[Rfam]
RNA sequence: ACCUUCCUUCAGCAGCACGAUCAAUACUGGAGACAUCAGCAGUGGUCAAACUCCAAUAUUUACGUGCUGCUACAGCAAGAU
Numbered sequence: 001a002c003c004u005u006c007c008u009u010c011a012g013c014a015g016c017a018c019g020a021u022c023a024a025u026a027c028u029g030g031a032g033a034c035a036u037c038a039g040c041a042g043u044g045g046u047c048a049a050a051c052u053c054c055a056a057u058a059u060u061u062a063c064g065u066g067c068u069g070c071u072a073c074a075g076c077a078a079g080a081u
Base pairs, nucleotide, nucleotide: 001081003079005077007075011071012070013069014068015067016066017065018064020061023060024059025058026057028055029054030053
The record is an 81-nucleotide RNA from Synaphobranchus kaupii, which matches "mir-16 microRNA precursor family" in Rfam. Its Rfam clan is "mir-15 clan". The literature on the family includes a 2002 paper in Proc Natl Acad Sci U S A by Calin et al., "Frequent deletions and down-regulation of micro- RNA genes miR15 and miR16 at 13q14 in chronic lymphocytic leukemia". Taxonomically the source falls in Synaphobranchus (Eukaryota, Eumetazoa, Elopocephalai, Synaphobranchinae). Rfam 15.1 lists 4,705 matches to the family in 758 species. A search with the family's covariance model found it, with a score of 38 bits.